The family of this 249-nucleotide RNA is "raiA RNA".

RNA sequence: UUUGUCCAGGUCUGUGGUUGCGGGCGCCAAGCCCUAGUCCAUGGCAGACGAGGUCAAAAGGAUCCACGUAAGCGCCGGCAUGCGUGCCUGCGCGAGCAUGGCUCGUCCUAGAGGUAAGUCGCACCGCCCGUCAGUCAAGAGGCAUCCGGCCUCGCGGGCGAGAGGGCCUCCAGUGAGCGCGGCUGCGGCCGCGCGAGCAAAAGCCCCGGUGCGCGAGUGUGGGGUCAAAAACCAGGUCAGCUGGACAAG
Dot-bracket structure: (((((((((..((((((((.....................((([..((((((.]........((............(.........)...........[))))))))............((((((((((((......................)))))))...((((.....((.....(((......))).....))....))))..)))))....)))......]..)))))...))))))))))))

Record summary: By type it is a riboswitch.